Source information: The record is a 112-nucleotide RNA from Planococcus salinus, which matches "BsrF" in Rfam. For this family Rfam cites "Novel small RNA-encoding genes in the intergenic regions of Bacillus subtilis" (Saito et al., Gene, 2008). The base pairs follow the family's consensus structure, which was predicted with WAR. The match comes from Rfam's covariance-model search (55 bits).

RNA sequence: GCGAUGAGCUCGUUUGCAUAAGACGGACAAGCAUUCCUUUUGGGAACACGUUGUGGAGCGUGGCUUGGACGCCGCAAAUUAUCGAAAACCAUCUUGUCUUUGGACAAGGUGG
Dot-bracket structure: .............((((......((..(((((..((......))..((.(((....))).)))))))..))..))))...........(((((((((......)))))))))